A member of the RNA family "Selenocysteine transfer RNA" from Sedimentibacter sp. zth1, 94 nucleotides long. The base pairs follow the family's consensus structure, which is taken from published work. A search with the family's covariance model found it, with a score of 63 bits. A reference for the family is Mizutani and Goto (2000), "Eukaryotic selenocysteine tRNA has the 9/4 secondary structure", FEBS Lett. Taxonomically the source falls in Sedimentibacter (Bacteria, Bacillati, Bacillota, Tissierellia).
RNA sequence: GGGAGUAGAUGAGUGCUGGUGUGCUCCCCGGUCUUCAACACCGCGUGUUGGGCGUUAGUAGCGUCCUAGGUGGGUUCGAUUCCCACAUAUUCCC
Numbered sequence: 001g002g003g004a005g006u007a008g009a010u011g012a013g014u015g016c017u018g019g020u021g022u023g024c025u026c027c028c029c030g031g032u033c034u035u036c037a038a039c040a041c042c043g044c045g046u047g048u049u050g051g052g053c054g055u056u057a058g059u060a061g062c063g064u065c066c067u068a069g070g071u072g073g074g075u076u077c078g079a080u081u082c083c084c085a086c087a088u089a090u091u092c093c094c
Stems, first nucleotide, its partner, number of pairs: 001094007008086001011026006028045001029043004048068001050066003071085004